This 81-nucleotide sequence from bacterium HR29 belongs to the Rfam family "ZMP/ZTP riboswitch aptamer (pfl RNA motif)". Rfam 15.1 lists 3,295 matches to the family in 2,545 species.

RNA sequence: GGCCGUCCGGGUGACUGGCGUCGCGCGGAGCACCGCGGGGGAGCCCGGACCUCGGGAUGGCCGCCCGCCUGGGCCGUGAUA
Numbered sequence: 001g002g003c004c005g006u007c008c009g010g011g012u013g014a015c016u017g018g019c020g021u022c023g024c025g026c027g028g029a030g031c032a033c034c035g036c037g038g039g040g041g042a043g044c045c046c047g048g049a050c051c052u053c054g055g056g057a058u059g060g061c062c063g064c065c066c067g068c069c070u071g072g073g074c075c076g077u078g079a080u081a
Stems, first nucleotide, its partner, number of pairs: 005050008015040002017069004025036004058076005